[Rfam]
RNA sequence: AGAUGUGAUGACUUACAUGGAAUCUCGUUCGGCUGAUGAUUUGCUGUUGAGACUCAAAAAUCUGACUUCC
Numbered sequence: 001a002g003a004u005g006u007g008a009u010g011a012c013u014u015a016c017a018u019g020g021a022a023u024c025u026c027g028u029u030c031g032g033c034u035g036a037u038g039a040u041u042u043g044c045u046g047u048u049g050a051g052a053c054u055c056a057a058a059a060a061u062c063u064g065a066c067u068u069c070c
Stems, first nucleotide, its partner, number of pairs: 023052005030046004

Rfam assigns this 70-nucleotide RNA sequence from Galemys pyrenaicus to the family "Small nucleolar RNA SNORD30".
Clan: SNORD30 clan.
Pairs were carried over by alignment from the consensus structure.
Rfam 15.1 lists 367 matches to the family in 268 species.